The family of this 141-nucleotide sequence from Bacillus methanolicus is "FMN riboswitch aptamer (RFN element)". NCBI's taxonomy places the organism under Bacteria, Bacilli, Caryophanales, Bacillaceae, Bacillus methanolicus. Its family is annotated with FMN binding in the Gene Ontology.

[Rfam]
RNA sequence: AUCUAUCUUCGGGGCAGGGUGCAAUUCCCGACCGGCGGUGAUGAGACAUUCUCAAAGCCCGCGAGCCUAAUCUACAUGAUUUAGGCAGGAUUUGGUGAGAUUCCAAAGCCGACAGUAUAGUCUGGAUGGGAGAAGAUGGAG
Numbered sequence: 001a002u003c004u005a006u007c008u009u010c011g012g013g014g015c016a017g018g019g020u021g022c023a024a025u026u027c028c029c030g031a032c033c034g035g036c037g038g039u040g041a042u043g044a045g046a047c048a049u050u051c052u053c054a055a056a057g058c059c060c061g062c063g064a065g066c067c068u069a070a071u072c073u074a075c076a077u078g079a080u081u082u083a084g085g086c087a088g089g090a091u092u093u094g095g096u097g098a099g100a101u102u103c104c105a106a107a108g109c110c111g112a113c114a115g116u117a118u119a120g121u122c123u124g125g126a127u128g129g130g131a132g133a134a135g136a137u138g139g140a141g
Stems, first nucleotide, its partner, number of pairs: 003139008017029003031121002033111002035062004057109002065086003091107005113124003